Overview: The family of this 252-nucleotide RNA sequence from Streptomyces sp. AS58 is "Streptomyces sRNA 4677". It scores 229 bits against the family's covariance model. The literature on the family includes a 2014 paper in PLoS One by Hindra et al., "Complex intra-operonic dynamics mediated by a small RNA in Streptomyces coelicolor". Rfam's curators write: Located in the intergenic region between anti-sigma factor SCO4677 gene and a putative regulatory protein gene SCO4676. scr4677 expression requires the SCO4677 activity and scr4677 sRNA itself seem to affect the levels of the SCO4676-associated transcripts. The pairing is the family consensus, mapped onto this sequence.
[Rfam]
RNA sequence: UGUUCCGGUGCCGUCGGCCGUCUGUUCCAAGAACCACGAGGGAGAAAGAAACCGCACCAAGCCCCACCCCUCCCGCCCACGGCGCCCGCUCACUCGCCCGAGUGAACAUCACCAACUGAGCUGGAUUCGCGACGGGUUGCCUGCCCUACGCUCAGCGCAGCACGACACGACAACCCCAGACAUGCAACGGCCCUCGCCGGGACUGGCAUCCCAGUGCGAGGGCCUGACCACCAAGGAAGCACAACCUUCCCG
Numbered sequence: 001u002g003u004u005c006c007g008g009u010g011c012c013g014u015c016g017g018c019c020g021u022c023u024g025u026u027c028c029a030a031g032a033a034c035c036a037c038g039a040g041g042g043a044g045a046a047a048g049a050a051a052c053c054g055c056a057c058c059a060a061g062c063c064c065c066a067c068c069c070c071u072c073c074c075g076c077c078c079a080c081g082g083c084g085c086c087c088g089c090u091c092a093c094u095c096g097c098c099c100g101a102g103u104g105a106a107c108a109u110c111a112c113c114a115a116c117u118g119a120g121c122u123g124g125a126u127u128c129g130c131g132a133c134g135g136g137u138u139g140c141c142u143g144c145c146c147u148a149c150g151c152u153c154a155g156c157g158c159a160g161c162a163c164g165a166c167a168c169g170a171c172a173a174c175c176c177c178a179g180a181c182a183u184g185c186a187a188c189g190g191c192c193c194u195c196g197c198c199g200g201g202a203c204u205g206g207c208a209u210c211c212c213a214g215u216g217c218g219a220g221g222g223c224c225u226g227a228c229c230a231c232c233a234a235g236g237a238a239g240c241a242c243a244a245c246c247u248u249c250c251c252g
Stems, first nucleotide, its partner, number of pairs: 007232004016077003020074001090105006120156005189224005195218003199212004235250005